[Rfam]
RNA: EcpR1
Organism: Martelella alba
RNA sequence: UUGCCCCAUGAUGUUCAGGUCCGCCGCAUCUCCUGGAUCGUGGGGUUGGCCGGCUGGCAGAUCGCAGGGGUCCUCGUGCCUUACGAUUCUGCUGGCCGGCCCCUCU
Numbered sequence: 001u002u003g004c005c006c007c008a009u010g011a012u013g014u015u016c017a018g019g020u021c022c023g024c025c026g027c028a029u030c031u032c033c034u035g036g037a038u039c040g041u042g043g044g045g046u047u048g049g050c051c052g053g054c055u056g057g058c059a060g061a062u063c064g065c066a067g068g069g070g071u072c073c074u075c076g077u078g079c080c081u082u083a084c085g086a087u088u089c090u091g092c093u094g095g096c097c098g099g100c101c102c103c104u105c106u
Stems, first nucleotide, its partner, number of pairs: 003046008014037006048101011